[Rfam]
RNA: U1 spliceosomal RNA
Organism: Eschrichtius robustus
RNA sequence: AUACUUACCUCGCAGGGGAGAUACCAUGAUCCCAAAGGUGGUUUUCCCAGGGCGAGGCUUAUCCAUUGCACUCUGGAUGUGUUGACCCCUGUGAUUUCCCAAAAUGUGGAAAACUCGACUGCAUAAUAUGUGGUAGUGGGGGACUGUGUUCAUGCUCUCCCCUG
Numbered sequence: 001a002u003a004c005u006u007a008c009c010u011c012g013c014a015g016g017g018g019a020g021a022u023a024c025c026a027u028g029a030u031c032c033c034a035a036a037g038g039u040g041g042u043u044u045u046c047c048c049a050g051g052g053c054g055a056g057g058c059u060u061a062u063c064c065a066u067u068g069c070a071c072u073c074u075g076g077a078u079g080u081g082u083u084g085a086c087c088c089c090u091g092u093g094a095u096u097u098c099c100c101a102a103a104a105u106g107u108g109g110a111a112a113a114c115u116c117g118a119c120u121g122c123a124u125a126a127u128a129u130g131u132g133g134u135a136g137u138g139g140g141g142g143a144c145u146g147u148g149u150u151c152a153u154g155c156u157c158u159c160c161c162c163u164g
Base pairs, nucleotide, nucleotide: 012122013121014120015119016048017047018046019045020044021043023042024041025040026039027038049090050089051088052087054086056083057082058081060079061078062077063076064075092117093116094115095113096111097110099109100108138163139162140161141160142159143158146155147154148153